[Rfam]
RNA: RT-16 RNA
RNA sequence: CCUAGCCAGAAAUGGCUGGGCCACACGCCAGUUAAUAGUGUUUGUUAAUUUUAACAAACUAUGAAAUGCAAAUGUGACAUUUAGUAGUGAUGAAGGAACUGAAAGUGAGCUGAGCGAAAUAUGAAGCCUUGGUGAUUUACUUUUAAUUAAUUGGCUACAAAUU
Dot-bracket structure: ((((((((....))))))))......((((((((((.(((..(...........................((.((..(((.(....((.........................))...).)))..)).))....)..))).....))))))))))........